[Rfam]
RNA: Small nucleolar RNA SNORA13
RNA sequence: UGCCUUUAUGUGUUGCCCAUUCAUCCCCUCUGUGGUGACUGGGGUGUCAACUAAGGCAAACAGUAACAGCUGUAGUUGUUUGUGAAAUGAGAUUUUCAGUUUCUCAUCUUUAAAACAGCUGCAAGGACACUG
Numbered sequence: 001u002g003c004c005u006u007u008a009u010g011u012g013u014u015g016c017c018c019a020u021u022c023a024u025c026c027c028c029u030c031u032g033u034g035g036u037g038a039c040u041g042g043g044g045u046g047u048c049a050a051c052u053a054a055g056g057c058a059a060a061c062a063g064u065a066a067c068a069g070c071u072g073u074a075g076u077u078g079u080u081u082g083u084g085a086a087a088u089g090a091g092a093u094u095u096u097c098a099g100u101u102u103c104u105c106a107u108c109u110u111u112a113a114a115a116c117a118g119c120u121g122c123a124a125g126g127a128c129a130c131u132g
Stems, first nucleotide, its partner, number of pairs: 002057005011049002014046004018041002021038005071123002075119005081114001083112004087107002091102002